[Rfam]
RNA: Small nucleolar RNA ACA64
RNA sequence: GUUGGUUGAAAAUCACCCCCGGCUUUGGCUGUAGCCGGGAGUGAGAAGCGGCGCCUAGAGCCAGCAGGGGCCUCAGCUCACCGCCCACUGCCUCGUGUGCGGGGGUGAAACCCAGGCCCCGACAGGU
Dot-bracket structure: ....((((....((((....((((........))))....))))....))))..............(.(((((....(((((...(((........)))....))))).....))))).).......